[Rfam]
RNA: tRNA
Organism: alpha proteobacterium U9-1i
RNA sequence: GGCCCCGUAGCUCAGCUGGAUAGAGCGGCUGCGUCCUAAGCAGCGGGUCGGGAGUUCGAAUCUCUCCGGGGUCG
Number, nucleotide and partner (000 for none) at each position: 001g073002g072003c071004c070005c069006c068007g067008u000009a000010g026011c025012u024013c023014a000015g000016c000017u000018g000019g000020a000021u000022a000023g013024a012025g011026c010027g000028g044029c043030u042031g041032c040033g000034u000035c000036c000037u000038a000039a000040g032041c031042a030043g029044c028045g000046g000047g000048u000049c000050g066051g065052g064053a063054g062055u000056u000057c000058g000059a000060a000061u000062c054063u053064c052065u051066c050067c007068g006069g005070g004071g003072u002073c001074g000